[Rfam]
RNA sequence: GAGACACCCUUAUGGGGAAGAACUUGCUUCAGUGGGACUUUGGUGCUCAUUGAGUCUGCCCCUUGAAUGUGUGACU
Number, nucleotide and partner (000 for none) at each position: 001g075002a000003g000004a072005c071006a070007c069008c000009c000010u066011u065012a064013u000014g062015g061016g060017g059018a000019a057020g000021a000022a055023c054024u000025u000026g000027c000028u000029u053030c052031a051032g050033u049034g048035g047036g046037a044038c043039u000040u000041u000042g000043g038044u037045g000046c036047u035048c034049a033050u032051u031052g030053a029054g023055u022056c000057u019058g000059c017060c016061c015062c014063u000064u012065g011066a010067a000068u000069g007070u006071g005072u004073g000074a000075c001076u000
RNA: mir-9229 microRNA precursor family
Organism: Pipistrellus kuhlii